[Rfam]
The record is a 46-nucleotide RNA from Heyndrickxia ginsengihumi, which matches "Ribosomal protein L19 leader" in Rfam.
The organism belongs to Heyndrickxia, within Bacteria.
It is annotated as a cis-regulatory leader.
From the family's description: This family is a putative r-protein leader autoregulatory structure found in B. subtilis and other low-GC Gram-positive bacteria. It is located in the 5' untranslated regions of mRNAs encoding ribosomal protein L19 (rplS).
Rfam links the family to the GO term regulation of gene expression.
A search with the family's covariance model found it, with a score of 38 bits.
The base pairs follow the family's consensus structure, which was predicted with CMfinder.
RNA sequence: ACGAUGUUCCGCUACAUUUAUGAUAAAAGAUUUGUAAGAGCAUCUG
Numbered sequence: 001a002c003g004a005u006g007u008u009c010c011g012c013u014a015c016a017u018u019u020a021u022g023a024u025a026a027a028a029g030a031u032u033u034g035u036a037a038g039a040g041c042a043u044c045u046g
Stems, first nucleotide, its partner, number of pairs: 003044007013036002016032001018030001